RNA sequence: CAUCGGCACCUUUCACCACGGAUCGUCUGGCACGUACCUGCCAGUGAAGGGAAAGCGCA
Numbered sequence: 001c002a003u004c005g006g007c008a009c010c011u012u013u014c015a016c017c018a019c020g021g022a023u024c025g026u027c028u029g030g031c032a033c034g035u036a037c038c039u040g041c042c043a044g045u046g047a048a049g050g051g052a053a054a055g056c057g058c059a
Stems, first nucleotide, its partner, number of pairs: 009051007027044006
Dot-bracket structure: ........(((((((...........((((((......)))))))))))))........
Rfam assigns this 59-nucleotide RNA sequence from Actinomyces sp. 2119 to the family "msiK RNA". It is annotated as a cis-regulatory element. The base pairs follow the family's consensus structure, which is taken from published work.